[Rfam]
Record summary
Rfam assigns this 238-nucleotide RNA sequence from Sporomusa malonica to the family "T-box leader". Rfam classes the family as a cis-regulatory leader. Rfam describes the family as follows. Uncharged tRNA acts as the effector for transcription antitermination of genes in the T-box leader family. T-boxes are found upstream of many aminoacyl-tRNA synthetase genes and some amino acid biosynthetic genes usually in Gram-positive bacteria. The base pairs follow the family's consensus structure, which is taken from published work.
RNA sequence: ACAAAAGUGAUGAUUGGGAAUAAAGGCAAUAUAACGAAUGCUACAGAGAACCGGAGUUGCUGAGAACCGGUGCGGAGUUGUUGCUGAUUAAAUCACCCAUGAACUCUUCUCCGAAAAUUACAGGAUUAGUUCUGUUUGGAUUAGGCAGAGGCGCCACCUGGGCGUUAACCAGGAGUCGGUUGAUUGACCGAUAUAAAGUUACAAAUAAGGGUGGUAUCGCGCAUUUUGCGCCCCUAUU
Numbered sequence: 001a002c003a004a005a006a007g008u009g010a011u012g013a014u015u016g017g018g019a020a021u022a023a024a025g026g027c028a029a030u031a032u033a034a035c036g037a038a039u040g041c042u043a044c045a046g047a048g049a050a051c052c053g054g055a056g057u058u059g060c061u062g063a064g065a066a067c068c069g070g071u072g073c074g075g076a077g078u079u080g081u082u083g084c085u086g087a088u089u090a091a092a093u094c095a096c097c098c099a100u101g102a103a104c105u106c107u108u109c110u111c112c113g114a115a116a117a118u119u120a121c122a123g124g125a126u127u128a129g130u131u132c133u134g135u136u137u138g139g140a141u142u143a144g145g146c147a148g149a150g151g152c153g154c155c156a157c158c159u160g161g162g163c164g165u166u167a168a169c170c171a172g173g174a175g176u177c178g179g180u181u182g183a184u185u186g187a188c189c190g191a192u193a194u195a196a197a198g199u200u201a202c203a204a205a206u207a208a209g210g211g212u213g214g215u216a217u218c219g220c221g222c223a224u225u226u227u228g229c230g231c232c233c234c235u236a237u238u
Base pairs, nucleotide, nucleotide: 007104008103015099016098017097018096025085026084027083028082029081030080039074040073041072050071051070052069053068054067107150108149109148110147112145152164153163154162179202180201182199184197185196208235209234210233211232219231220230221229222228223227